[Rfam]
ZMP/ZTP riboswitch aptamer (pfl RNA motif): an 89-nucleotide sequence from Streptomyces sp. MS191.
Pairs were carried over by alignment from the consensus structure, which is taken from published work.
Rfam links the family to the GO terms regulation of purine nucleotide biosynthetic process and one-carbon metabolic process.
It scores 51 bits against the family's covariance model.
RNA sequence: AACACACGCGGUGACUGGCGUACGGGGAAGCGACCCCGGGGGAGCCGCGCGCGGCAGAACACGCGAUGCCGCCCGCCUGGGCAUCACGG
Numbered sequence: 001a002a003c004a005c006a007c008g009c010g011g012u013g014a015c016u017g018g019c020g021u022a023c024g025g026g027g028a029a030g031c032g033a034c035c036c037c038g039g040g041g042g043a044g045c046c047g048c049g050c051g052c053g054g055c056a057g058a059a060c061a062c063g064c065g066a067u068g069c070c071g072c073c074c075g076c077c078u079g080g081g082c083a084u085c086a087c088g089g
Base pairs, nucleotide, nucleotide: 003053005051007049008048009047010046011045012044015041016040017077018076019075020074024037025036026035027034066084067083068082069081070080